[Rfam]
RNA sequence: GAGGCGGCCUCCGAAAAGCCUGAUAUUUAAAAGAGUAGGAA
Numbered sequence: 001g002a003g004g005c006g007g008c009c010u011c012c013g014a015a016a017a018g019c020c021u022g023a024u025a026u027u028u029a030a031a032a033g034a035g036u037a038g039g040a041a
Stems, first nucleotide, its partner, number of pairs: 002021004010040003

Shown here is a 41-nucleotide RNA sequence, a member of the family "DUF805b RNA". A search with the family's covariance model found it, with a score of 36 bits. The family's RNA type in Rfam is cis-regulatory element.